[Rfam]
RNA sequence: GCAACAUCAGGCUGGUCGCCUCGGACCGCACCGUGCUGCAGGCGCUUCUGGCCAUUUCCUGGAUGUGGUUCUACGGCGUGGCCUUUCUCACCCAGUUCCCGGUGUUCGCCAAGGGCGUGCUG
Numbered sequence: 001g002c003a004a005c006a007u008c009a010g011g012c013u014g015g016u017c018g019c020c021u022c023g024g025a026c027c028g029c030a031c032c033g034u035g036c037u038g039c040a041g042g043c044g045c046u047u048c049u050g051g052c053c054a055u056u057u058c059c060u061g062g063a064u065g066u067g068g069u070u071c072u073a074c075g076g077c078g079u080g081g082c083c084u085u086u087c088u089c090a091c092c093c094a095g096u097u098c099c100c101g102g103u104g105u106u107c108g109c110c111a112a113g114g115g116c117g118u119g120c121u122g
Stems, first nucleotide, its partner, number of pairs: 010049002014045001017042001021038001023036001025034002051121001053119003057115004062110001063105003067099002071095002075091001078088001080087002
Notes: Burkholderia RNA 11: a 122-nucleotide RNA sequence from Thiomonas delicata. Its family is annotated with protein binding in the Gene Ontology. The organism belongs to Thiomonas, within Bacteria. Rfam's curators write: Co-purified with Hfq, expression confirmed by Northern blot. By type it is a small RNA.